[Rfam]
RNA sequence: GCGUGCCUGGCUCCCUGUAUGCCAUUUGUAGAGUUCAUCAAAAUGGUGAUGACUUUAAUGAAUGGCGUACGAGGAGCCAUGCAUGC
Numbered sequence: 001g002c003g004u005g006c007c008u009g010g011c012u013c014c015c016u017g018u019a020u021g022c023c024a025u026u027u028g029u030a031g032a033g034u035u036c037a038u039c040a041a042a043a044u045g046g047u048g049a050u051g052a053c054u055u056u057a058a059u060g061a062a063u064g065g066c067g068u069a070c071g072a073g074g075a076g077c078c079a080u081g082c083a084u085g086c
Stems, first nucleotide, its partner, number of pairs: 001086006008079007016071009027060003
RNA: mir-160 microRNA precursor family